[Rfam]
RNA sequence: CCGCUCUCAUCUCCUUAUCACUUUUCCAGCCCAGCUUCUUCUCUGUAACUGUUGGACGGAGAACUGAUAAGGGUAUGCGAGGGG
Numbered sequence: 001c002c003g004c005u006c007u008c009a010u011c012u013c014c015u016u017a018u019c020a021c022u023u024u025u026c027c028a029g030c031c032c033a034g035c036u037u038c039u040u041c042u043c044u045g046u047a048a049c050u051g052u053u054g055g056a057c058g059g060a061g062a063a064c065u066g067a068u069a070a071g072g073g074u075a076u077g078c079g080a081g082g083g084g
Stems, first nucleotide, its partner, number of pairs: 012073009022063006030055002
The family of this 84-nucleotide sequence from Brachypteracias leptosomus is "mir-184 microRNA precursor family". Gene Ontology terms of the family: RISC complex and gene silencing by miRNA.